[Rfam]
RNA sequence: GUCGGCGUCGUGACGGUCCAGCCGCAAUCGGUGCCGGUCGUCACCGAACUGCCGGGCCGCACCAGUGCCUUCCUGGUCGCCCAGGUGCGGGCACGGGUCGACGGUAUCGUGCUGCGUCGCGAAUUCACCGAAGGCACCGAUGUCAAGGCAGGGCAACGCCUGUACAAGAUCGA
Numbered sequence: 001g002u003c004g005g006c007g008u009c010g011u012g013a014c015g016g017u018c019c020a021g022c023c024g025c026a027a028u029c030g031g032u033g034c035c036g037g038u039c040g041u042c043a044c045c046g047a048a049c050u051g052c053c054g055g056g057c058c059g060c061a062c063c064a065g066u067g068c069c070u071u072c073c074u075g076g077u078c079g080c081c082c083a084g085g086u087g088c089g090g091g092c093a094c095g096g097g098u099c100g101a102c103g104g105u106a107u108c109g110u111g112c113u114g115c116g117u118c119g120c121g122a123a124u125u126c127a128c129c130g131a132a133g134g135c136a137c138c139g140a141u142g143u144c145a146a147g148g149c150a151g152g153g154c155a156a157c158g159c160c161u162g163u164a165c166a167a168g169a170u171c172g173a
Stems, first nucleotide, its partner, number of pairs: 003054005008047003011043006018037002021034002023031001056149003059143003063139001065137005071131002076092003082089001094121002097118001099116002102114005157172002160168002
RNA: Burkholderia RNA 14